[Rfam]
Nucleotides: 087
Base pairs, nucleotide, nucleotide: 001087003084004083011036012035016031017030018029019028020027021026034073039080040079041078042077044076045075046074047071048070049069
Number, partner (000 for none) and nucleotide at each position: 001087c002000u003084u004083g005000a006000a007000a008000a009000a010000g011036g012035c013000a014000a015000a016031c017030u018029u019028a020027g021026c022000g023000a024000a025000a026021g027020c028019u029018a030017a031016g032000g033000a034073c035012g036011c037000a038000a039080a040079g041078c042077c043000a044076c045075g046074g047071a048070u049069c050000u051000u052000c053000u054000a055000c056000c057000u058000u059000g060000a061000a062000a063000a064000g065000u066000a067000a068000u069049g070048a071047u072000c073034g074046c075045c076044g077042g078041g079040c080039u081000a082000c083004c084003a085000a086000g087001g
Rfam assigns this 87-nucleotide RNA sequence from Desulfosporosinus fructosivorans to the family "c-di-GMP-I-GGC riboswitch aptamer". Rfam links the family to the GO term cyclic-di-GMP binding. A search with the family's covariance model found it, with a score of 77 bits. For this family Rfam cites "Bioinformatic analysis of riboswitch structures uncovers variant classes with altered ligand specificity" (Weinberg et al., Proc Natl Acad Sci U S A, 2017).